[Rfam]
RNA sequence: GCAGGACAAUCCGAAAACCUGUAGAAAAGAGUAGGAA
Numbered sequence: 001g002c003a004g005g006a007c008a009a010u011c012c013g014a015a016a017a018c019c020u021g022u023a024g025a026a027a028a029g030a031g032u033a034g035g036a037a
Base pairs, nucleotide, nucleotide: 002021003020004019005018010036011035012034